[Rfam]
RNA sequence: GGAAAAGGCCUUUCAGGCAUCCUCUCCUAAAACUUUCAAGCCGUCCUCCGGGGCGGCUUUUUUUUUGCCUUUU
Numbered sequence: 001g002g003a004a005a006a007g008g009c010c011u012u013u014c015a016g017g018c019a020u021c022c023u024c025u026c027c028u029a030a031a032a033c034u035u036u037c038a039a040g041c042c043g044u045c046c047u048c049c050g051g052g053g054c055g056g057c058u059u060u061u062u063u064u065u066u067g068c069c070u071u072u073u
Base pairs, nucleotide, nucleotide: 008018009017010016011015039058040057041056042055043054044053045052046051
The family of this 73-nucleotide sequence from Sphingobium indicum is "Makes More Granules Regulator RNA (mmgR)". Rfam links the family to the GO terms protein binding, response to nitrogen compound and DNA-templated transcription, termination. Pairs were carried over by alignment from the consensus structure. About the family: SuhB later renamed mmgR (makes more granules regulator) was a putative non-coding RNA found multiple times in the Agrobacterium tumefaciens genome and related alpha-proteobacteria. Other non-coding RNAs uncovered in the same analysis include: speF, ybhL, metA, and serC.Several studies inSinorhizobium meliloti showed that suhB element is indeed a non-coding RNA:firstly it was detected on Northern blot and called Sm8RNA, secondly in an RNAseq study referred to as SmelC689.The mutant phenotype's (strain lacking the small RNA) cytoplasm contains higher content of polyhydroxybutyrate (PBH)storage granules than wild type strain. Rfam classes the family as a small RNA. A search with the family's covariance model found it, with a score of 48 bits. Taxonomically the source falls in Sphingobium indicum (Bacteria, Pseudomonadota, Sphingomonadales, Sphingobium).